[Rfam]
Lysine riboswitch aptamer: a 197-nucleotide sequence from Thermoactinomyces sp. AS95. It scores 135 bits against the family's covariance model.
RNA sequence: CGGUGAGGUAGAGGUUGCGGCUUUUAUCAGUACUUUGCACGAGAAUUUGGAGUUUCAUUUGAUGACUGCAAGGGAAAGGAAAAGUCGCCGAAGUUUGUUCGCCCGCUCCAGGCGGACAAGCUGGGGCUGAUUCCAAACAGGGUCAGCACUGUCACGUUUGUUCUUUGCCCAGACAAACGUGGUGCGCUAUCUUGCGG
Numbered sequence: 001c002g003g004u005g006a007g008g009u010a011g012a013g014g015u016u017g018c019g020g021c022u023u024u025u026a027u028c029a030g031u032a033c034u035u036u037g038c039a040c041g042a043g044a045a046u047u048u049g050g051a052g053u054u055u056c057a058u059u060u061g062a063u064g065a066c067u068g069c070a071a072g073g074g075a076a077a078g079g080a081a082a083a084g085u086c087g088c089c090g091a092a093g094u095u096u097g098u099u100c101g102c103c104c105g106c107u108c109c110a111g112g113c114g115g116a117c118a119a120g121c122u123g124g125g126g127c128u129g130a131u132u133c134c135a136a137a138c139a140g141g142g143u144c145a146g147c148a149c150u151g152u153c154a155c156g157u158u159u160g161u162u163c164u165u166u167g168c169c170c171a172g173a174c175a176a177a178c179g180u181g182g183u184g185c186g187c188u189a190u191c192u193u194g195c196g197g
Base pairs, nucleotide, nucleotide: 006192007191008190009189010188011187017088018087019086020085021084022083023082024081025080033073034072035071036070037069038068039067092122093121094120095119096118097117098116099115100114101113102112103111123150124149126147127146128145129144130143131142132141133140152182153181154180155179156178157177158176159175160174161173162172